[Rfam]
RNA sequence: AUAAUUAUAACGCUGAAUCUUUUUGAACGGGAGAACCAUUUUUUGGGGUGAAUCUUAUUUUAGGAUAAGUAGGGUUAUUUUCUUCAAUCCGAAUCCGUCAGCUAAUCUCGUAAGCGUUGAAGAGAAGUUUU
Numbered sequence: 001a002u003a004a005u006u007a008u009a010a011c012g013c014u015g016a017a018u019c020u021u022u023u024u025g026a027a028c029g030g031g032a033g034a035a036c037c038a039u040u041u042u043u044u045g046g047g048g049u050g051a052a053u054c055u056u057a058u059u060u061u062a063g064g065a066u067a068a069g070u071a072g073g074g075u076u077a078u079u080u081u082c083u084u085c086a087a088u089c090c091g092a093a094u095c096c097g098u099c100a101g102c103u104a105a106u107c108u109c110g111u112a113a114g115c116g117u118u119g120a121a122g123a124g125a126a127g128u129u130u131u
Stems, first nucleotide, its partner, number of pairs: 011116004018026002027111006037045002046096003054069004072090004